The family of this 96-nucleotide RNA from Phoenix dactylifera is "MIR535 microRNA precursor family".
For this family Rfam cites "Conservation and divergence of microRNAs and their functions in Euphorbiaceous plants" (Zeng et al., Nucleic Acids Res, 2010).
The match comes from Rfam's covariance-model search (81 bits).
The base pairs follow the family's consensus structure, which was predicted with RNAalifold.
Its family is annotated with miRNA-mediated post-transcriptional gene silencing and RISC complex in the Gene Ontology.
RNA sequence: CAUGAUGGGUGACAACGAGAGAGAGCACGCCGGUCGGCAGUCAUGCAGGGUGCCAUGGCUGGGUACUGGCGUGCUCUUUCUCGGUGUCACCUCAGU
Numbered sequence: 001c002a003u004g005a006u007g008g009g010u011g012a013c014a015a016c017g018a019g020a021g022a023g024a025g026c027a028c029g030c031c032g033g034u035c036g037g038c039a040g041u042c043a044u045g046c047a048g049g050g051u052g053c054c055a056u057g058g059c060u061g062g063g064u065a066c067u068g069g070c071g072u073g074c075u076c077u078u079u080c081u082c083g084g085u086g087u088c089a090c091c092u093c094a095g096u
Base pairs, nucleotide, nucleotide: 010089011088012087013086014085016083017082020079021078023076025074026073027072028071029070030069031068032067033066034065